[Rfam]
RNA sequence: AAAGCGGAAUCCGAAAAGCUAAUAGAGUAGGAA
Numbered sequence: 001a002a003a004g005c006g007g008a009a010u011c012c013g014a015a016a017a018g019c020u021a022a023u024a025g026a027g028u029a030g031g032a033a
Stems, first nucleotide, its partner, number of pairs: 003020003010032003
Dot-bracket structure: ..(((....[[[.....))).........]]].
RNA: DUF805b RNA